[Rfam]
The record is a 72-nucleotide RNA sequence from Argiope bruennichi, which matches "mir-87 microRNA precursor family" in Rfam. A reference for the family is Sempere et al. (2003), "Temporal regulation of microRNA expression in Drosophila melanogaster mediated by hormonal signals and broad-Complex gene activity", Dev Biol. NCBI's taxonomy places the organism under Eukaryota, Eumetazoa, Panarthropoda, Chelicerata, Argiope. Pairs were carried over by alignment from the consensus structure, which was predicted with RNAalifold.

RNA sequence: CACCCUUCCACCUGAAACGUUGUCUCAACCUUUUUUUCAAAUAGGUGAGCAAAAUUUCAGGUGUGGGGGAGA
Numbered sequence: 001c002a003c004c005c006u007u008c009c010a011c012c013u014g015a016a017a018c019g020u021u022g023u024c025u026c027a028a029c030c031u032u033u034u035u036u037u038c039a040a041a042u043a044g045g046u047g048a049g050c051a052a053a054a055u056u057u058c059a060g061g062u063g064u065g066g067g068g069g070a071g072a
Stems, first nucleotide, its partner, number of pairs: 003069005009063007017055001020052002024049004029045003